[Rfam]
RNA sequence: UCUCCUUGAGGGGCCUUGGCUUCUGCCCAGGACUCUUUCAUGACCAGUAGGCCGAGGCCCCUCACAGGCGGC
Dot-bracket structure: ((.(((.((((((((((.((((((...((.((.....)).))...)).)))).))))))))))..))).)).

A member of the RNA family "mir-665 microRNA precursor family" from Odocoileus virginianus, 72 nucleotides long. A search with the family's covariance model found it, with a score of 95 bits. On this family, see Mineno et al., Nucleic Acids Res 2006: "The expression profile of microRNAs in mouse embryos". The source organism's lineage runs through Eukaryota, Deuterostomia, Vertebrata, Boreoeutheria and Odocoileus virginianus.